[Rfam]
RNA sequence: AUGCAUCUCUUUGACAUAUCUGGAGCAGUUAUAUCUGCUUUUAAGGUUUCCACUCAGAUGCAAGAAAAAUUUUUCUCGAGCUUUCUCUCUGCAUGAUUGUGGCUGUCUAGAUCAAAUAGCGGAAUAUAAGA
Numbered sequence: 001a002u003g004c005a006u007c008u009c010u011u012u013g014a015c016a017u018a019u020c021u022g023g024a025g026c027a028g029u030u031a032u033a034u035c036u037g038c039u040u041u042u043a044a045g046g047u048u049u050c051c052a053c054u055c056a057g058a059u060g061c062a063a064g065a066a067a068a069a070u071u072u073u074u075c076u077c078g079a080g081c082u083u084u085c086u087c088u089c090u091g092c093a094u095g096a097u098u099g100u101g102g103c104u105g106u107c108u109a110g111a112u113c114a115a116a117u118a119g120c121g122g123a124a125u126a127u128a129a130g131a
Stems, first nucleotide, its partner, number of pairs: 002062007012052002016049001018047003023040006073123003077119001084111003089105001091103002
Description:
The family of this 131-nucleotide RNA sequence from Phascolarctos cinereus is "Small nucleolar RNA SNORA31". The family's consensus secondary structure was predicted with RNAalifold. Gene Ontology terms of the family: nucleolus and RNA processing. NCBI's taxonomy places the organism under Eukaryota, Eumetazoa, Metatheria, Phascolarctidae, Phascolarctos.